[Rfam]
Nucleotides: 119
Base pairs, nucleotide, nucleotide: 003047004046005042006041013035014034016032018029055113057111058110059109060108061107068098069097070096071095072094073093074092076090077089078088080087
Number, partner (000 for none) and nucleotide at each position: 001000g002000a003047g004046c005042u006041c007000a008000a009000g010000a011000a012000a013035u014034g015000a016032c017000u018029c019000c020000g021000u022000g023000c024000c025000u026000u027000a028000a029018g030000a031000g032016g033000c034014u035013a036000a037000c038000c039000c040000a041006g042005a043000a044000a045000g046004g047003u048000a049000a050000a051000g052000c053000a054000a055113g056000u057111c058110u059109c060108c061107a062000u063000a064000a065000a066000a067000c068098c069097c070096a071095g072094a073093g074092a075000a076090g077089a078088g079000a080087u081000g082000g083000u084000a085000a086000a087080a088078c089077u090076c091000c092074u093073c094072u095071u096070u097069g098068g099000a100000u101000c102000c103000u104000g105000u106000c107061u108060g109059g110058a111057g112000u113055c114000a115000c116000a117000g118000c119000u
Shown here is a 119-nucleotide RNA from Myotis lucifugus, a member of the family "Small nucleolar RNA SNORA26". On this family, see Huttenhofer et al., EMBO J 2001: "RNomics: an experimental approach that identifies 201 candidates for novel, small, non-messenger RNAs in mouse". Its family is annotated with RNA processing and nucleolus in the Gene Ontology. Its Rfam clan is "SNORA27 clan". Rfam's curators write: The snoRNA HBI-6 belong to the H/ACA family of snoRNAs, guiding the pseudouridylation of position U4522 if the 28S rRNA. HBI-6 is the human orthologue of mouse MBI-6 snoRNA. It is annotated as an H/ACA-box small nucleolar RNA. Rfam's curators put it in the seed alignment.